[Rfam]
RNA: SAM (S-adenosyl methionine) riboswitch aptamer
RNA sequence: GGUCAAGAUUUCCAGCGCGAAGCCCCGGCUUGCUGGACGGCAACCCUCCCGCGCGGCGGGGUGCCCCGGGUGAGGACCUGGUCGUGGACGGACGGUGACGCCCGGACCACGGCAAGCGACGCGG
Numbered sequence: 001g002g003u004c005a006a007g008a009u010u011u012c013c014a015g016c017g018c019g020a021a022g023c024c025c026c027g028g029c030u031u032g033c034u035g036g037a038c039g040g041c042a043a044c045c046c047u048c049c050c051g052c053g054c055g056g057c058g059g060g061g062u063g064c065c066c067c068g069g070g071u072g073a074g075g076a077c078c079u080g081g082u083c084g085u086g087g088a089c090g091g092a093c094g095g096u097g098a099c100g101c102c103c104g105g106a107c108c109a110c111g112g113c114a115a116g117c118g119a120c121g122c123g124g
Stems, first nucleotide, its partner, number of pairs: 001078004011037006021030002039065003044061003048056002081113007089105001